[Rfam]
RNA sequence: UAACGAUAAAGGCAAACUUAUCGAAAGAUAAGGACGCAAAGCCACGGGUCUAAGGUUCAAUGUGAAUGAUGACAGCCGGGUUACCGAA
Numbered sequence: 001u002a003a004c005g006a007u008a009a010a011g012g013c014a015a016a017c018u019u020a021u022c023g024a025a026a027g028a029u030a031a032g033g034a035c036g037c038a039a040a041g042c043c044a045c046g047g048g049u050c051u052a053a054g055g056u057u058c059a060a061u062g063u064g065a066a067u068g069a070u071g072a073c074a075g076c077c078g079g080g081u082u083a084c085c086g087a088a
Stems, first nucleotide, its partner, number of pairs: 012037002017032006040082004045078003048073003055067004
Rfam assigns this 88-nucleotide RNA from Aneurinibacillus sp. XH2 to the family "c-di-GMP-I riboswitch aptamer". NCBI's taxonomy places the organism under Bacteria, Bacilli, Caryophanales, Paenibacillaceae, Aneurinibacillus. A search with the family's covariance model found it, with a score of 93 bits.